[Rfam]
RNA sequence: CAUGGAGGAAGCUGACUUGGCUGAUGUGGUACAGAGAAGUCAAUUUGUUUACAUACCUAAUUCAUG
Numbered sequence: 001c002a003u004g005g006a007g008g009a010a011g012c013u014g015a016c017u018u019g020g021c022u023g024a025u026g027u028g029g030u031a032c033a034g035a036g037a038a039g040u041c042a043a044u045u046u047g048u049u050u051a052c053a054u055a056c057c058u059a060a061u062u063c064a065u066g
Base pairs, nucleotide, nucleotide: 001066002065003064004063005062006061009058011056014049015048016047019045020044022042023041024040025039026032027031
Shown here is a 66-nucleotide RNA sequence from Monodelphis domestica, a member of the family "MAT2A 3'UTR stem loop F". The family's RNA type in Rfam is cis-regulatory element. Rfam 15.1 lists 403 matches to the family in 255 species. The organism belongs to Monodelphis, within Eukaryota.